[Rfam]
RNA sequence: GGCAAAAUACAUGAGGUAAAUUCCCCUCUGAUGUGAUGUUUCAAUCACAUCAGAGGGGAAUUUACCUCAUGUAUUUUGUA
Numbered sequence: 001g002g003c004a005a006a007a008u009a010c011a012u013g014a015g016g017u018a019a020a021u022u023c024c025c026c027u028c029u030g031a032u033g034u035g036a037u038g039u040u041u042c043a044a045u046c047a048c049a050u051c052a053g054a055g056g057g058g059a060a061u062u063u064a065c066c067u068c069a070u071g072u073a074u075u076u077u078g079u080a
Stems, first nucleotide, its partner, number of pairs: 003078009015066002018063004023058003027054009
The record is an 80-nucleotide RNA sequence from Columbina picui, which matches "mir-2944 microRNA precursor family" in Rfam. Rfam 15.1 lists 66 matches to the family in 42 species.